[Rfam]
Background
Rfam assigns this 76-nucleotide sequence from Takifugu flavidus to the family "mir-219 microRNA precursor family". It scores 66 bits against the family's covariance model. Its family is annotated with miRNA-mediated post-transcriptional gene silencing and RISC complex in the Gene Ontology. The family's consensus secondary structure was predicted with RNAalifold.
RNA sequence: UCUGGUGUUGAUUGUCCAAACGCAAUUCUUGUGUGACUCCGCGUCCAGGAGUUGUGGCUGGACAUCAUGCCCCCGG
Numbered sequence: 001u002c003u004g005g006u007g008u009u010g011a012u013u014g015u016c017c018a019a020a021c022g023c024a025a026u027u028c029u030u031g032u033g034u035g036a037c038u039c040c041g042c043g044u045c046c047a048g049g050a051g052u053u054g055u056g057g058c059u060g061g062a063c064a065u066c067a068u069g070c071c072c073c074c075g076g
Stems, first nucleotide, its partner, number of pairs: 002075001004073002007070001009067004014063005021056011